[Rfam]
RNA sequence: CGCGUAUGGAUGGGGAGUCUGGCGGACCCUUAUGACCUGCAAUCCGCUGCGAGCAGGAUCCGAAACCGGGUGUAAAAUUAAGAGUAUGCUUUUCCCGCAGUCGCAAGUCAGUCGGGUCUUGCGCAAUAGGACCCUGUGAACCCCGUCAGGUUCGGAAGAAAGCAGCGGUAAGCGGAUCGUUCUAUGUGCCGCAAGGGUGCCUGAUUGUGCUUGUAGCUGCGGGAAUUCAUAUAUUUUUAAUAUGUACAACCGGGUAUGCG
Dot-bracket structure: (((((((((((((((.((((...))))))))....(((((............)))))))))....((((.((..(.(((.((((((((...((.((((((..((.((((((((((((((((((((.(((((..((((.....((((....(((....)))....))))...))))....)))))))...))))))...))))))))).))).))..)))))).))..)))))..))).))).)...)).)))))))))))

Bacterial large signal recognition particle RNA: a 260-nucleotide sequence from Acidaminobacter hydrogenoformans. Taxonomically the source falls in Acidaminobacter hydrogenoformans (Bacteria, Bacillati, Bacillota, Acidaminobacteraceae). A search with the family's covariance model found it, with a score of 133 bits.